[Rfam]
RNA sequence: GGAUUCACAUUACUCCGAGUUUAGUUCGCUAAGUGCGUCGCAUAGGCCAAUUAAACCGAUGGGUUAAACCGGAAACAGUUUAGCCUCCCGAUUUCGUCAGAGGAUGAAUGACUUUGGAAAGGAGAAAACGGUAGCUCGAA
Numbered sequence: 001g002g003a004u005u006c007a008c009a010u011u012a013c014u015c016c017g018a019g020u021u022u023a024g025u026u027c028g029c030u031a032a033g034u035g036c037g038u039c040g041c042a043u044a045g046g047c048c049a050a051u052u053a054a055a056c057c058g059a060u061g062g063g064u065u066a067a068a069c070c071g072g073a074a075a076c077a078g079u080u081u082a083g084c085c086u087c088c089c090g091a092u093u094u095c096g097u098c099a100g101a102g103g104a105u106g107a108a109u110g111a112c113u114u115u116g117g118a119a120a121g122g123a124g125a126a127a128a129c130g131g132u133a134g135c136u137c138g139a140a
Stems, first nucleotide, its partner, number of pairs: 004133001006131001011126001013124004019056008028047002033043004061086009071076001087117002
The family of this 140-nucleotide sequence from Mangrovibacterium marinum is "Molybdenum/Tungsten riboswitch aptamer (Moco RNA motif)". The match comes from Rfam's covariance-model search (67 bits).